[Rfam]
RNA sequence: UUGCUUCUUCAGGGAAAGGUGCAAUUCCUUAACCGGCAGUUAUAGUCUGCGAGUCCUAGGACCGAUUUGGUGAAAUUCCAAAACCGACAGUAUAGUCUGGAUGGAAGAAGAUAUUA
Numbered sequence: 001u002u003g004c005u006u007c008u009u010c011a012g013g014g015a016a017a018g019g020u021g022c023a024a025u026u027c028c029u030u031a032a033c034c035g036g037c038a039g040u041u042a043u044a045g046u047c048u049g050c051g052a053g054u055c056c057u058a059g060g061a062c063c064g065a066u067u068u069g070g071u072g073a074a075a076u077u078c079c080a081a082a083a084c085c086g087a088c089a090g091u092a093u094a095g096u097c098u099g100g101a102u103g104g105a106a107g108a109a110g111a112u113a114u115u116a
Base pairs, nucleotide, nucleotide: 003114006111007110008109009108010107017029018028019027032096033095034086035085036050037049038048039047045084046083053062054061055060066082067081068080069079070078088099089098090097
RNA: FMN riboswitch aptamer (RFN element)
Organism: Anaerococcus lactolyticus